RNA: Molybdenum/Tungsten riboswitch aptamer (Moco RNA motif)
RNA sequence: UGCAUAUUUUGUUUCCGCGCCAAAUUGAUCUAAAGGCUUCCGCCCAUGACGUUUGGCCUGAGCCGCAGGCUCGCGGGGUAUGGCUGGAAACGGCCCUGCCUUCUGUUUUGAGAAGGGGACGAACCGACACAUGG
Numbered sequence: 001u002g003c004a005u006a007u008u009u010u011g012u013u014u015c016c017g018c019g020c021c022a023a024a025u026u027g028a029u030c031u032a033a034a035g036g037c038u039u040c041c042g043c044c045c046a047u048g049a050c051g052u053u054u055g056g057c058c059u060g061a062g063c064c065g066c067a068g069g070c071u072c073g074c075g076g077g078g079u080a081u082g083g084c085u086g087g088a089a090a091c092g093g094c095c096c097u098g099c100c101u102u103c104u105g106u107u108u109u110g111a112g113a114a115g116g117g118g119a120c121g122a123a124c125c126g127a128c129a130c131a132u133g134g
Base pairs, nucleotide, nucleotide: 011120012119013118014117015116016115019057020056021055022054023053024052025051029049030048035044036043037042059073060072061071062070063069076101077100078099079098080097082095083094084093085092086091102111103110